[Rfam]
The record is an 84-nucleotide sequence from Eleutherodactylus coqui, which matches "mir-221 microRNA precursor family" in Rfam. The family has 72 seed sequences and 1,797 matches in Rfam 15.1. The match comes from Rfam's covariance-model search (78 bits).
RNA sequence: CGUGGCAUGCACCUGGCACACAAUGUAGAUAUCUGUGUUUGUGAAGCAACAGCUACAUUGUCUGCUGGGUUUCAGGCUCAAUGG
Numbered sequence: 001c002g003u004g005g006c007a008u009g010c011a012c013c014u015g016g017c018a019c020a021c022a023a024u025g026u027a028g029a030u031a032u033c034u035g036u037g038u039u040u041g042u043g044a045a046g047c048a049a050c051a052g053c054u055a056c057a058u059u060g061u062c063u064g065c066u067g068g069g070u071u072u073c074a075g076g077c078u079c080a081a082u083g084g
Stems, first nucleotide, its partner, number of pairs: 013068006020061009033052004
Background
Pairs were carried over by alignment from the consensus structure, which was predicted with RNAalifold. The source organism's lineage runs through Eukaryota, Eumetazoa, Dipnotetrapodomorpha, Tetrapoda and Eleutherodactylus.